[Rfam]
RNA: Group II catalytic intron D1-D4-2
RNA sequence: GAGGGGAGGCCCCUCGGGGUCGGCGUGCAGGCGCAGACUUCAAACCGCGGCAAGCGGCGUCGAUCAAGAGUCGUCGUCGUGAGCGUUGCCGGAAAAGGCGGAGGGUACUCCGUCAGGU
Number, nucleotide and partner (000 for none) at each position: 001g015002a014003g013004g012005g011006g000007a000008g000009g000010c000011c005012c004013c003014u002015c001016g041017g040018g039019g038020u037021c036022g000023g034024c033025g032026u031027g000028c000029a000030g000031g026032c025033g024034c023035a000036g021037a020038c019039u018040u017041c016042a000043a000044a000045c000046c117047g000048c091049g090050g089051c088052a087053a086054g080055c079056g000057g077058c076059g075060u000061c073062g072063a071064u070065c000066a000067a000068g000069a000070g064071u063072c062073g061074u000075c059076g058077u057078c000079g055080u054081g000082a000083g000084c000085g000086u053087u052088g051089c050090c049091g048092g000093a000094a000095a000096a000097g114098g113099c112100g111101g110102a109103g000104g000105g000106u000107a000108c000109u102110c101111c100112g099113u098114c097115a000116g000117g046118u000